[Rfam]
RNA: permuted transfer-messenger RNA
Organism: Asticcacaulis sp. YBE204
RNA sequence: GGGGAUAAACGCCCACGUAAUAAGCGGACUGGACCCGGGUGCGAUUCCCGGCGGCUCCACCAUCUCUCCCUUACGGGACAUCAUGGGGCCGAUCAGCAUCGACAGACGUGUAAAGGUGUAGCCUUCUCCAGGUUUGGGCCGCCUUGAUCAGCCCAAAAUUCUAGUUGCGAACGAUAACUUCGCUUCGGAUGUCGCUCUUGCUGCGUAA
Numbered sequence: 001g002g003g004g005a006u007a008a009a010c011g012c013c014c015a016c017g018u019a020a021u022a023a024g025c026g027g028a029c030u031g032g033a034c035c036c037g038g039g040u041g042c043g044a045u046u047c048c049c050g051g052c053g054g055c056u057c058c059a060c061c062a063u064c065u066c067u068c069c070c071u072u073a074c075g076g077g078a079c080a081u082c083a084u085g086g087g088g089c090c091g092a093u094c095a096g097c098a099u100c101g102a103c104a105g106a107c108g109u110g111u112a113a114a115g116g117u118g119u120a121g122c123c124u125u126c127u128c129c130a131g132g133u134u135u136g137g138g139c140c141g142c143c144u145u146g147a148u149c150a151g152c153c154c155a156a157a158a159u160u161c162u163a164g165u166u167g168c169g170a171a172c173g174a175u176a177a178c179u180u181c182g183c184u185u186c187g188g189a190u191g192u193c194g195c196u197c198u199u200g201c202u203g204c205g206u207a208a
Stems, first nucleotide, its partner, number of pairs: 001129005014118003025108002029105003035051005052091007130144004